The family of this 32-nucleotide sequence from Syrrhaptes paradoxus is "Iron response element II". On this family, see Koeller et al., Proc Natl Acad Sci U S A 1989: "A cytosolic protein binds to structural elements within the iron regulatory region of the transferrin receptor mRNA". Taxonomically the source falls in Syrrhaptes (Eukaryota, Opisthokonta, Craniata, Neognathae).
[Rfam]
RNA sequence: ACACCAUCAGAGCCAGUGCGUUUCUAUGGUUU
Numbered sequence: 001a002c003a004c005c006a007u008c009a010g011a012g013c014c015a016g017u018g019c020g021u022u023u024c025u026a027u028g029g030u031u032u
Stems, first nucleotide, its partner, number of pairs: 001032001003030005009025003012021002014018001
The family's RNA type in Rfam is cis-regulatory element. Rfam links the family to the GO term response to iron ion. From the family's description: IRE, TFRC, SLC40A1, SDHB, SLC11A2, CDC42BPA, ACO2, ALAS2_H.SAPIENS, CDC14A, EPAS1, ALAS2, qoxD, Hao1, NDUFS1, transferrin, Aconitate.